Shown here is a 58-nucleotide RNA sequence from Phenylobacterium glaciei, a member of the family "terC RNA". Pairs were carried over by alignment from the consensus structure, which is taken from published work.

RNA sequence: ACUGCGGACCGGGCCCCUCUGGCGGCGCACAUUGUGCGUUGUGAUGUCGGACGCAACA
Dot-bracket structure: ......(.((((.........((((((((.....))))))))....)))).)......